Rfam assigns this 96-nucleotide sequence from Solanum lycopersicum to the family "Plastid-rps12 3UTR RNA". The literature on the family includes a 2023 paper in Plant Commun by Richter et al., "Retrograde signaling in plants: A critical review focusing on the GUN pathway and beyond". It is annotated as a cis-regulatory element. Plastid rpl20 is a non-coding RNA (ncRNA) recognised in plastids. It was found in the three prime untranslated region (3UTR) of rps12 gene, its 3UTR location sugest a role in transcript maduration.
[Rfam]
RNA sequence: GGAUUCCAUUGGUGUAAACCUAUCACCUGAAUUUAAGAUGAUAACAAAUUCUCCAUUGGUAAUAAACGAUUAUCUAUUAUUUGGAGAAAUUCUUAU
Numbered sequence: 001g002g003a004u005u006c007c008a009u010u011g012g013u014g015u016a017a018a019c020c021u022a023u024c025a026c027c028u029g030a031a032u033u034u035a036a037g038a039u040g041a042u043a044a045c046a047a048a049u050u051c052u053c054c055a056u057u058g059g060u061a062a063u064a065a066a067c068g069a070u071u072a073u074c075u076a077u078u079a080u081u082u083g084g085a086g087a088a089a090u091u092c093u094u095a096u
Base pairs, nucleotide, nucleotide: 009022011020012019051086052085053084054083055077056076058074059073060072061071062070063069